[Rfam]
RNA sequence: UGAGUCCGCCGGGCGACCGCGGUCGGCCAUCCCCGGUCUGACCGGGGUGAACCGGUCGAGGAAAGUCCGGGCUCCACAGGGCAGGGUGGUUGCUAACGGCAACCCGGCGUGAGCCGCGGGAUAGUGCCACAGAGAACAGACCGCCAGGCACCCUCGGGUGCCCGGUGAGGGUGAAACGGUGGUGUAAGAGACCACCAGCGCCCCGGGUGACCGGGGCGGCUCGGUAAACCCCACCCGGAGCAAGGUCGAAAAGCCACGUCCGGAACGGACGGGGUGCGCAGGCGUUCGAGGGCAGCCCGCCCGAGCCUGCGGGUGGACCGCUGGAGCGUGCCGGCAACGGUACGUCGAGAUGGAUGGUCGCCGAACGGGAUCGCCGCGAGGCGCCCGUGAACAGAACCCGGCUUACAUGGCGGACUCAUCCC
Number, nucleotide and partner (000 for none) at each position: 001u418002g417003a416004g415005u414006c413007c412008g411009c410010c409011g406012g362013g361014c360015g359016a358017c357018c356019g000020c058021g057022g056023u055024c054025g053026g052027c000028c000029a000030u000031c000032c000033c000034c000035g000036g000037u000038c000039u000040g000041a000042c000043c000044g000045g000046g000047g000048u000049g000050a000051a000052c026053c025054g024055g023056u022057c021058g020059a000060g000061g000062a000063a404064a403065g402066u000067c401068c400069g399070g398071g397072c240073u239074c238075c237076a000077c000078a000079g298080g297081g296082c295083a000084g236085g235086g234087u233088g232089g103090u102091u101092g100093c099094u000095a000096a000097c000098g000099g093100c092101a091102a090103c089104c118105c116106g115107g114108c113109g000110u000111g000112a000113g108114c107115c106116g105117c000118g104119g231120g230121a000122u000123a000124g229125u228126g225127c224128c223129a000130c000131a000132g000133a000134g000135a000136a000137c000138a000139g000140a000141c170142c169143g166144c165145c164146a000147g162148g161149c160150a159151c158152c157153c000154u000155c000156g000157g152158g151159u150160g149161c148162c147163c000164g145165g144166u143167g000168a000169g142170g141171g000172u000173g000174a000175a000176a000177c000178g196179g195180u194181g193182g192183u191184g000185u000186a000187a000188g000189a000190g000191a183192c182193c181194a180195c179196c178197a000198g220199c218200g217201c216202c215203c214204c213205g212206g211207g000208u000209g000210a000211c206212c205213g204214g203215g202216g201217c200218g199219g000220c198221u000222c000223g128224g127225u126226a000227a000228a125229c124230c120231c119232c088233a087234c086235c085236c084237g075238g074239a073240g072241c000242a000243a000244g319245g318246u317247c316248g000249a000250a000251a000252a000253g000254c000255c000256a000257c000258g000259u000260c000261c000262g000263g000264a000265a000266c000267g000268g000269a000270c000271g000272g000273g000274g000275u000276g000277c000278g310279c309280a308281g307282g306283c305284g000285u000286u000287c000288g000289a000290g302291g301292g300293c299294a000295g082296c081297c080298c079299g293300c292301c291302c290303g000304a000305g283306c282307c281308u280309g279310c278311g000312g000313g000314u000315g000316g247317a246318c245319c244320g000321c000322u000323g000324g000325a000326g345327c344328g343329u342330g341331c340332c339333g338334g000335c000336a000337a000338c333339g332340g331341u330342a329343c328344g327345u326346c000347g000348a000349g000350a000351u000352g000353g000354a000355u000356g018357g017358u016359c015360g014361c013362c012363g000364a000365a000366c000367g000368g000369g000370a000371u000372c000373g000374c000375c000376g000377c000378g000379a000380g000381g000382c000383g000384c000385c000386c000387g000388u000389g000390a000391a000392c000393a000394g000395a000396a000397c071398c070399c069400g068401g067402c065403u064404u063405a000406c011407a000408u000409g010410g009411c008412g007413g006414a005415c004416u003417c002418a001419u000420c000421c000422c000
RNA: Bacterial RNase P class A
Organism: Nakamurella multipartita